RNA sequence: GAGUUAUCCUGUCGAGCGAGGUUAAGCGGAAAACGCGGAGCCGAAGCGAAAGCGAGUCUUAAAAGGGCGAAGAGUUCGGCGGGGUAGACCCGAAACCACAGUGAUCUAUGCAUGGCCAGGCUGAAACUCAGGUAAAAUUGAGCGGAGGGCCGAACCCGUGAGUGUUGAAAAACUUUGGGAUGAGCUGUGCAUAGGGGUGAAAUGCCAAUCGAACGUGGAGAUAGCUGGUU
Numbered sequence: 001g002a003g004u005u006a007u008c009c010u011g012u013c014g015a016g017c018g019a020g021g022u023u024a025a026g027c028g029g030a031a032a033a034c035g036c037g038g039a040g041c042c043g044a045a046g047c048g049a050a051a052g053c054g055a056g057u058c059u060u061a062a063a064a065g066g067g068c069g070a071a072g073a074g075u076u077c078g079g080c081g082g083g084g085u086a087g088a089c090c091c092g093a094a095a096c097c098a099c100a101g102u103g104a105u106c107u108a109u110g111c112a113u114g115g116c117c118a119g120g121c122u123g124a125a126a127c128u129c130a131g132g133u134a135a136a137a138u139u140g141a142g143c144g145g146a147g148g149g150c151c152g153a154a155c156c157c158g159u160g161a162g163u164g165u166u167g168a169a170a171a172a173c174u175u176u177g178g179g180a181u182g183a184g185c186u187g188u189g190c191a192u193a194g195g196g197g198u199g200a201a202a203u204g205c206c207a208a209u210c211g212a213a214c215g216u217g218g219a220g221a222u223a224g225c226u227g228g229u230u
Base pairs, nucleotide, nucleotide: 005086006085007084008083009082010081011080012079013078014077015076016075017074020042021041022040023039026036027035028034046053047052056068057067058066059065089228090227092225096218097217098216099215101214102213106194107193108192109191110190111189112188113187114186115185116184117182119151120150121149122148127142128141129140130139131138155179156178157177160175161174162173163172196206197205198204